RNA sequence: GCCGGUCCUCGGUAGUGGCCCCCGGGUGGCAGCAGCCACCGGAGGCUUCGAUCGAAGACCGGC
Numbered sequence: 001g002c003c004g005g006u007c008c009u010c011g012g013u014a015g016u017g018g019c020c021c022c023c024g025g026g027u028g029g030c031a032g033c034a035g036c037c038a039c040c041g042g043a044g045g046c047u048u049c050g051a052u053c054g055a056a057g058a059c060c061g062g063c
Base pairs, nucleotide, nucleotide: 001063002062003061004060005059006058007057009055010054011053012052013051017047018046019045020044022042023041024040025039027038028037029036030035
This 63-nucleotide RNA sequence from Actinacidiphila yanglinensis belongs to the Rfam family "Actino-pnp RNA". By type it is a cis-regulatory element. The base pairs follow the family's consensus structure, which is taken from published work.